Rfam assigns this 115-nucleotide RNA sequence from Treponema phagedenis to the family "TD-2 RNA".
Lineage of the source: Bacteria > Pseudomonadati > Spirochaetota > Treponematales > Treponema.
The family is grouped with related families in Rfam's "TD (Treponema denticola) motifs".
Rfam classes the family as a small RNA.
The literature on the family includes a 2007 paper in Nucleic Acids Res by Weinberg et al., "Identification of 22 candidate structured RNAs in bacteria using the CMfinder comparative genomics pipeline".
RNA sequence: ACGGGCACGGAUGCCCGUGGUUCCAGACAGCAGCGAUGUUUUAAAGCAAAAGUGUUUGUAAGGCUUUAAAACUCGCAGGGUUUGUUUUGCCAUGGACGGCAAAACAAACCCGUUG
Numbered sequence: 001a002c003g004g005g006c007a008c009g010g011a012u013g014c015c016c017g018u019g020g021u022u023c024c025a026g027a028c029a030g031c032a033g034c035g036a037u038g039u040u041u042u043a044a045a046g047c048a049a050a051a052g053u054g055u056u057u058g059u060a061a062g063g064c065u066u067u068a069a070a071a072c073u074c075g076c077a078g079g080g081u082u083u084g085u086u087u088u089g090c091c092a093u094g095g096a097c098g099g100c101a102a103a104a105c106a107a108a109c110c111c112g113u114u115g
Stems, first nucleotide, its partner, number of pairs: 001018006034075003038072010078111014